[Rfam]
Shown here is an 80-nucleotide sequence from Ruminococcus sp. CAG:177, a member of the family "S10-Clostridia ribosomal protein leader". The organism belongs to Ruminococcus, within Bacteria.
RNA sequence: UGAUAUGCGAUGAUGCAGAAGGUGGCCGUCCUUUGAGACGGGGAAUUUCUGCGGAGUAUGUCCGAUUUAAAACCGGGCGA
Numbered sequence: 001u002g003a004u005a006u007g008c009g010a011u012g013a014u015g016c017a018g019a020a021g022g023u024g025g026c027c028g029u030c031c032u033u034u035g036a037g038a039c040g041g042g043g044a045a046u047u048u049c050u051g052c053g054g055a056g057u058a059u060g061u062c063c064g065a066u067u068u069a070a071a072a073c074c075g076g077g078c079g080a
Stems, first nucleotide, its partner, number of pairs: 015052003020048003026041005061080002066077003